RNA sequence: GUGAGGAGGACCCCACGUGAUGCGCAGCGUCACGUUUAUAAUGGGGUCCGACGUACCUGCCGCCGCCGUCGAAGACGGAGGGGGCGAUACCAAAA
Number, nucleotide and partner (000 for none) at each position: 001g000002u000003g000004a000005g000006g000007a000008g049009g048010a047011c046012c045013c044014c000015a000016c000017g033018u032019g031020a030021u029022g028023c000024g000025c000026a000027g000028c022029g021030u020031c019032a018033c017034g000035u000036u000037u000038a000039u000040a000041a000042u000043g000044g013045g012046g011047u010048c009049c008050g000051a000052c000053g000054u000055a000056c000057c000058u000059g085060c084061c083062g000063c081064c080065g000066c000067c077068g076069u075070c074071g000072a000073a000074g070075a069076c068077g067078g000079a000080g064081g063082g000083g061084g060085c059086g000087a000088u000089a000090c000091c000092a000093a000094a000095a000
RNA: GA-cis RNA